This 28-nucleotide RNA sequence from Acanthosepion pharaonis belongs to the Rfam family "L19-Flavobacteria ribosomal protein leader".
[Rfam]
RNA sequence: UAACCUCUGACAUUACCUGUGUAUGUUG
Dot-bracket structure: ((((...(.(((.....)))..).))))
Lineage of the source: Eukaryota > Eumetazoa > Mollusca > Sepiidae > Acanthosepion.
The family's consensus secondary structure is taken from published work.